[Rfam]
This 57-nucleotide sequence from Propioniferax innocua belongs to the Rfam family "msiK RNA". The source organism's lineage runs through Bacteria, Bacillati, Propionibacteriales, Propionibacteriaceae and Propioniferax.

RNA sequence: GAACAUGGCUUCCACAACGGAUCGUCGGGCACGUACCUGCCCGUGGAAGGAGACGGC
Numbered sequence: 001g002a003a004c005a006u007g008g009c010u011u012c013c014a015c016a017a018c019g020g021a022u023c024g025u026c027g028g029g030c031a032c033g034u035a036c037c038u039g040c041c042c043g044u045g046g047a048a049g050g051a052g053a054c055g056g057c
Stems, first nucleotide, its partner, number of pairs: 009049006026043006
The family's consensus secondary structure is taken from published work.